Overview:
The record is a 501-nucleotide part of an RNA from Funneliformis mosseae, which matches "Eukaryotic large subunit ribosomal RNA" in Rfam. NCBI's taxonomy places the organism under Eukaryota, Fungi, Glomeromycetes, Glomeraceae, Funneliformis. A search with the family's covariance model found it, with a score of 3108 bits.

RNA sequence: CCUGCCGAAAUUUCCCUUAGGAUAGCAGAAGCUCUUUAAAACUAGUUUUAUGAGGUAAAGCGAAUGAUUAGAGGCAUUGGGGUUGAAACAACCUCAACCUAUUCUCAAACUUUAAAUAUGUAAGAAGCUUUCAAGUUACUUGAUUGAACUUGAGCUAAUAGAAUACGAGUUUCUUGUGGGCCAUUUUUGGUAAGCAGAACUGGCGAAAUGGGAUGAACCGUUCGUAAGGUUAAGGUGCCUAAAUUCACGCUAAUUUAGAUAACAUAAAGGGUGUGAGUUCGUAUUGACAACGGGACGGUGGCCAUGGAAGUUGGAAUCCGCUAAGGAGUGUGUAAUAACUCACCUGUCGAACGAAGUUGCCCCGAAAAUGGAUGGCGCUCAAGCGUGAUACCUAUACCUUACCUUUAAGGUUAAAGUGAAGCCUUAAAGAGUAGGCAGGCGUGAAGGUUUUGUUGCAAAGCUUUUAGAGUGAUCUUGAGUGGAACAACCUUUAGUGCAGAU
Numbered sequence: 001c002c003u004g005c006c007g008a009a010a011u012u013u014c015c016c017u018u019a020g021g022a023u024a025g026c027a028g029a030a031g032c033u034c035u036u037u038a039a040a041a042c043u044a045g046u047u048u049u050a051u052g053a054g055g056u057a058a059a060g061c062g063a064a065u066g067a068u069u070a071g072a073g074g075c076a077u078u079g080g081g082g083u084u085g086a087a088a089c090a091a092c093c094u095c096a097a098c099c100u101a102u103u104c105u106c107a108a109a110c111u112u113u114a115a116a117u118a119u120g121u122a123a124g125a126a127g128c129u130u131u132c133a134a135g136u137u138a139c140u141u142g143a144u145u146g147a148a149c150u151u152g153a154g155c156u157a158a159u160a161g162a163a164u165a166c167g168a169g170u171u172u173c174u175u176g177u178g179g180g181c182c183a184u185u186u187u188u189g190g191u192a193a194g195c196a197g198a199a200c201u202g203g204c205g206a207a208a209u210g211g212g213a214u215g216a217a218c219c220g221u222u223c224g225u226a227a228g229g230u231u232a233a234g235g236u237g238c239c240u241a242a243a244u245u246c247a248c249g250c251u252a253a254u255u256u257a258g259a260u261a262a263c264a265u266a267a268a269g270g271g272u273g274u275g276a277g278u279u280c281g282u283a284u285u286g287a288c289a290a291c292g293g294g295a296c297g298g299u300g301g302c303c304a305u306g307g308a309a310g311u312u313g314g315a316a317u318c319c320g321c322u323a324a325g326g327a328g329u330g331u332g333u334a335a336u337a338a339c340u341c342a343c344c345u346g347u348c349g350a351a352c353g354a355a356g357u358u359g360c361c362c363c364g365a366a367a368a369u370g371g372a373u374g375g376c377g378c379u380c381a382a383g384c385g386u387g388a389u390a391c392c393u394a395u396a397c398c399u400u401a402c403c404u405u406u407a408a409g410g411u412u413a414a415a416g417u418g419a420a421g422c423c424u425u426a427a428a429g430a431g432u433a434g435g436c437a438g439g440c441g442u443g444a445a446g447g448u449u450u451u452g453u454u455g456c457a458a459a460g461c462u463u464u465u466a467g468a469g470u471g472a473u474c475u476u477g478a479g480u481g482g483a484a485c486a487a488c489c490u491u492u493a494g495u496g497c498a499g500a501u
Stems, first nucleotide, its partner, number of pairs: 001439006011024001013022003027174007046125007058113001059111002065107003070102001072100003077097006084090001127155003132152006180204004185199005209220003224402005230396001234392003243389001245388001248385003269363003273360004278355005290347005296320003302314002321325001326341001330339002403429009440496001442493008452485002460480002466475003